[Rfam]
The record is a 59-nucleotide RNA sequence from Nocardiopsis kunsanensis, which matches "Actino-pnp RNA" in Rfam.
RNA sequence: GCCGGUCCUCGGUAGUGGUCCCCGGCGCAGGACGCCGAGGACUUCGAUCGAUGACCGGU
Number, nucleotide and partner (000 for none) at each position: 001g059002c058003c057004g056005g055006u054007c053008c000009u051010c050011g049012g048013u047014a000015g000016u000017g043018g042019u041020c040021c039022c000023c037024g036025g035026c034027g033028c000029a000030g000031g000032a000033c027034g026035c025036c024037g023038a000039g021040g020041a019042c018043u017044u000045c000046g000047a013048u012049c011050g010051a009052u000053g007054a006055c005056c004057g003058g002059u001

A search with the family's covariance model found it, with a score of 65 bits.
It is annotated as a cis-regulatory element.
The family's consensus secondary structure is taken from published work.